[Rfam]
RNA: GA-cis RNA
RNA sequence: GUGAGGAGGGGCUGCAUGAACGAAGUUCAUAUUUAAUCAGCCCCGACGACCUGCCGCCGAGCGAAGGCGAGGGGGCAUUACCAGAG
Numbered sequence: 001g002u003g004a005g006g007a008g009g010g011g012c013u014g015c016a017u018g019a020a021c022g023a024a025g026u027u028c029a030u031a032u033u034u035a036a037u038c039a040g041c042c043c044c045g046a047c048g049a050c051c052u053g054c055c056g057c058c059g060a061g062c063g064a065a066g067g068c069g070a071g072g073g074g075g076c077a078u079u080a081c082c083a084g085a086g
Stems, first nucleotide, its partner, number of pairs: 008044006016030005053076003057072002061068002
Dot-bracket structure: .......((((((..(((((.....)))))........))))))........(((.((..((....))..)).)))..........